[Rfam]
A member of the RNA family "Small nucleolar RNA SNORD87" from Smithornis capensis, 79 nucleotides long. Rfam 15.1 lists 539 matches to the family in 430 species. Rfam classes the family as a C/D-box small nucleolar RNA. The pairing is the family consensus, mapped onto this sequence. It scores 50 bits against the family's covariance model.

RNA sequence: GCUGGCAUAAUGAUGAGACCUUUGCCGUUUACCCAUCUGAAUGGUUUUUGAUGUGUAUCUUUCAAUCUGAAAUGCCAGU
Number, nucleotide and partner (000 for none) at each position: 001g079002c078003u077004g076005g075006c074007a073008u000009a000010a000011u000012g000013a000014u000015g000016a000017g000018a000019c000020c000021u000022u000023u000024g000025c000026c000027g000028u000029u000030u000031a000032c000033c000034c000035a000036u000037c000038u000039g000040a000041a000042u000043g000044g000045u000046u000047u000048u000049u000050g000051a000052u000053g000054u000055g000056u000057a000058u000059c000060u000061u000062u000063c000064a000065a000066u000067c000068u000069g000070a000071a000072a000073u007074g006075c005076c004077a003078g002079u001

On this family, see Gogolevskaya et al., Gene 2002: "U87 RNA, a novel C/D box small nucleolar RNA from mammalian cells". Its family is annotated with RNA processing and nucleolus in the Gene Ontology.